[Rfam]
RNA: MIR168 microRNA precursor family
RNA sequence: GUCGCGGCGGGGUCUGAUUCGCUUGGUGCAGGUCGGGAAUGCUUCGAUCCGUUCGCGGUCGGCUGGAUCCCGCCUUGCAUCAACUGAAUCGGAGCCGGGCCGCGAUA
Numbered sequence: 001g002u003c004g005c006g007g008c009g010g011g012g013u014c015u016g017a018u019u020c021g022c023u024u025g026g027u028g029c030a031g032g033u034c035g036g037g038a039a040u041g042c043u044u045c046g047a048u049c050c051g052u053u054c055g056c057g058g059u060c061g062g063c064u065g066g067a068u069c070c071c072g073c074c075u076u077g078c079a080u081c082a083a084c085u086g087a088a089u090c091g092g093a094g095c096c097g098g099g100c101c102g103c104g105a106u107a
Base pairs, nucleotide, nucleotide: 013093014092017089018088019087020086023083024082025081026080027079028078029077030076031075032074034072035071036070037069038068040066